[Rfam]
RNA sequence: AAAAGAUGGAGACCAGAAACCAUCAUAAAAAACGGGGCGUUUUCCGAAAAGCCUGAUGAGUAGGAGCCAA
Dot-bracket structure: .....((((..........))))............(((....[[......))).........]]......
Numbered sequence: 001a002a003a004a005g006a007u008g009g010a011g012a013c014c015a016g017a018a019a020c021c022a023u024c025a026u027a028a029a030a031a032a033c034g035g036g037g038c039g040u041u042u043u044c045c046g047a048a049a050a051g052c053c054u055g056a057u058g059a060g061u062a063g064g065a066g067c068c069a070a
Stems, first nucleotide, its partner, number of pairs: 006023004036053003043064002